[Rfam]
HNH endonuclease-associated RNA and ORF (HEARO) RNA: a 219-nucleotide RNA sequence from Paenibacillus wynnii.
The family's consensus secondary structure is taken from published work.
RNA sequence: GUCAACUCCCCACCACUUAAACGGUAAAGCGUUAUGAAGUGGGGGCUUGAAAAAGCCCUAGUUGUCUAGCCUUAGCUUUAAGCUACGUUGGGCAUGUCAAUACGGCUUGGUGUAAUUCCCUAGCACCUUUUGUCGUUCAGGCGCUGUAACAGUUCUGUUGGGUCGGAACGGUCAACCUGAGGCACGAAGCAUGUCCAACAUUGGCGAAGGGAAACAAAC
Numbered sequence: 001g002u003c004a005a006c007u008c009c010c011c012a013c014c015a016c017u018u019a020a021a022c023g024g025u026a027a028a029g030c031g032u033u034a035u036g037a038a039g040u041g042g043g044g045g046c047u048u049g050a051a052a053a054a055g056c057c058c059u060a061g062u063u064g065u066c067u068a069g070c071c072u073u074a075g076c077u078u079u080a081a082g083c084u085a086c087g088u089u090g091g092g093c094a095u096g097u098c099a100a101u102a103c104g105g106c107u108u109g110g111u112g113u114a115a116u117u118c119c120c121u122a123g124c125a126c127c128u129u130u131u132g133u134c135g136u137u138c139a140g141g142c143g144c145u146g147u148a149a150c151a152g153u154u155c156u157g158u159u160g161g162g163u164c165g166g167a168a169c170g171g172u173c174a175a176c177c178u179g180a181g182g183c184a185c186g187a188a189g190c191a192u193g194u195c196c197a198a199c200a201u202u203g204g205c206g207a208a209g210g211g212a213a214a215c216a217a218a219c
Base pairs, nucleotide, nucleotide: 001066003064004063005062006061007060010045011044013042014041016039017038046055047054048053069205070204071203074084075083076082077081087199088198089197090196091195092194093193094192095191096190097189102133103132109127110126111125112124113123116213117212118211119210120209121208136181137180138179139178140177141176145174146173149172150171152169153168154167155166156165157164
A reference for the family is Weinberg et al. (2009), "Exceptional structured noncoding RNAs revealed by bacterial metagenome analysis", Nature.